Group II catalytic intron D1-D4-3: a 177-nucleotide RNA sequence from Sediminitomix flava. About the family: Group II introns are found in rRNA, tRNA and mRNA of organelles in fungi, plants and protists, and also in mRNA in bacteria. NCBI's taxonomy places the organism under Bacteria, Pseudomonadati, Bacteroidota, Cytophagia, Sediminitomix. It scores 126 bits against the family's covariance model.
[Rfam]
Nucleotides: 177
Base pairs, nucleotide, nucleotide: 001016002015003014004013005012006011028177031174037169042163043162044161045160046159049155050154051153063152064151065150066149067148068147074144075143076142079139080138081137082136083135084134086114087113088112089111092107093106094105095104
Number, partner (000 for none) and nucleotide at each position: 001016u002015u003014u004013a005012c006011c007000g008000c009000g010000a011006g012005g013004u014003a015002a016001g017000c018000a019000c020000u021000g022000a023000a024000g025000g026000a027000a028177g029000c030000g031174a032000g033000a034000c035000u036000g037169c038000a039000a040000a041000a042163u043162c044161c045160g046159g047000u048000a049155c050154c051153g052000a053000c054000g055000a056000a057000c058000a059000g060000a061000a062000a063152c064151u065150a066149c067148a068147u069000a070000u071000g072000a073000g074144g075143c076142u077000a078000u079139c080138a081137a082136g083135g084134u085000c086114g087113g088112g089111u090000a091000a092107g093106c094105a095104a096000g097000c098000a099000c100000a101000u102000c103000u104095u105094u106093g107092u108000a109000a110000a111089g112088c113087c114086c115000a116000a117000a118000a119000c120000u121000u122000c123000g124000u125000a126000a127000g128000a129000u130000g131000a132000g133000a134084g135083c136082c137081u138080u139079g140000u141000u142076a143075g144074u145000a146000g147068a148067u149066g150065u151064a152063g153051c154050g155049g156000g157000c158000a159046u160045c161044g162043g163042a164000g165000g166000a167000a168000a169037g170000a171000g172000g173000a174031u175000g176000u177028u